[Rfam]
RNA sequence: ACUUGUUUUGUUGGUUGUCAUCUAACCAUCGAUCGGUCCGUGCUUCGGUGCUUGUGCCAUGAUUUUGCAUCAUCACACCGGCGAUGGUUAGAUGACCAUCAGCAAACAUGUU
Dot-bracket structure: ....((((.((((((.(((((((((((((((..................................................))))))))))))))).)))))))))).....
RNA: MIR827 microRNA precursor family
Organism: Brachypodium distachyon